[Rfam]
Shown here is a 109-nucleotide sequence from Cognatishimia maritima, a member of the family "Guanidine-I riboswitch aptamer". NCBI's taxonomy places the organism under Bacteria, Pseudomonadati, Pseudomonadota, Rhodobacterales, Cognatishimia.
RNA sequence: UUGCAGGACGCUUAGGGUUCCGCCGCAUUCCCAGCGGGUCAGGUCCGAGAAGCUUCACCGAACCGGCAAACUCCGGUAAGGCACACGGCGGGGCAAAAUCCCGGGAGAC
Number, nucleotide and partner (000 for none) at each position: 001u000002u000003g000004c000005a000006g000007g056008a055009c000010g053011c052012u051013u000014a000015g046016g045017g000018u000019u000020c043021c042022g040023c037024c036025g035026c034027a000028u000029u000030c000031c000032c000033a000034g026035c025036g024037g023038g000039u000040c022041a000042g021043g020044u000045c016046c015047g000048a000049g000050a000051a012052g011053c010054u000055u008056c007057a000058c081059c080060g000061a000062a077063c076064c075065g074066g073067c000068a000069a000070a000071c000072u000073c066074c065075g064076g063077u062078a000079a000080g059081g058082c000083a000084c104085a000086c107087g000088g000089c000090g102091g101092g100093g000094c000095a000096a000097a000098a000099u000100c092101c091102c090103g000104g084105g000106a000107g086108a000109c000
This family represents a conserved RNA structure found upstream of the ykkC and yxkD genes in Bacillus subtilis and related genes in other bacteria. The function of this family is unclear although it has been suggested that it may function to switch on efflux pumps and detoxification systems in response to harmful environmental molecules.